[Rfam]
RNA sequence: AUGCAGGUCUUCCAGCGUGUCCGGGCUGGUAGUAGCUCUGGUCUCUCCUGUUGACUCUGCUAGAUCAUCCCUGGGGUGGUUUGAGGCUUCUUCCUGCCCCUCCGGGAGGAGGUUAUAGAAACCCCAGACACUU
Numbered sequence: 001a002u003g004c005a006g007g008u009c010u011u012c013c014a015g016c017g018u019g020u021c022c023g024g025g026c027u028g029g030u031a032g033u034a035g036c037u038c039u040g041g042u043c044u045c046u047c048c049u050g051u052u053g054a055c056u057c058u059g060c061u062a063g064a065u066c067a068u069c070c071c072u073g074g075g076g077u078g079g080u081u082u083g084a085g086g087c088u089u090c091u092u093c094c095u096g097c098c099c100c101u102c103c104g105g106g107a108g109g110a111g112g113u114u115a116u117a118g119a120a121a122c123c124c125c126a127g128a129c130a131c132u133u
Stems, first nucleotide, its partner, number of pairs: 003060005019043001023038005072126005087112006094105003